The family of this 107-nucleotide RNA sequence from Trifolium pratense is "MIR2593 microRNA precursor family".
The family has 7 seed sequences and 1,262 matches in Rfam 15.1.
Taxonomically the source falls in Trifolium (Eukaryota, Embryophyta, Euphyllophyta, Gunneridae).

RNA sequence: AUAUAAGAAGAAGUUCAAUUUUUAGAUACAUUGAACUAUUGAUGUAUCUAGACAGUCUAGAUACAUCAAUAGUUCAAUGUAUCUAAAAAUUGAACUUCUUCUUAUAU
Number, nucleotide and partner (000 for none) at each position: 001a000002u106003a105004u104005a103006a102007g101008a000009a099010g098011a097012a096013g095014u000015u093016c092017a091018a090019u089020u088021u087022u086023u085024a084025g083026a000027u081028a080029c079030a078031u077032u076033g075034a074035a073036c072037u071038a070039u069040u068041g067042a066043u065044g064045u000046a000047u000048c000049u059050a058051g057052a056053c000054a000055g000056u052057c051058u050059a049060g000061a000062u000063a000064c044065a043066u042067c041068a040069a039070u038071a037072g036073u035074u034075c033076a032077a031078u030079g029080u028081a027082u000083c025084u024085a023086a022087a021088a020089a019090u018091u017092g016093a015094a000095c013096u012097u011098c010099u009100u000101c007102u006103u005104a004105u003106a002107u000